[Rfam]
RNA sequence: GCGGGAUUCGUACCCGUUGAAAGGAAUGUAGCCCGUAAGGGCUGAACCUUGAG
Numbered sequence: 001g002c003g004g005g006a007u008u009c010g011u012a013c014c015c016g017u018u019g020a021a022a023g024g025a026a027u028g029u030a031g032c033c034c035g036u037a038a039g040g041g042c043u044g045a046a047c048c049u050u051g052a053g
Stems, first nucleotide, its partner, number of pairs: 001017005022049003030043005
Annotation
This 53-nucleotide RNA sequence belongs to the Rfam family "eL15-Euryarchaeota ribosomal protein leader". By type it is a cis-regulatory leader. A reference for the family is Eckert and Weinberg (2020), "Discovery of 20 novel ribosomal leader candidates in bacteria and archaea", BMC Microbiol.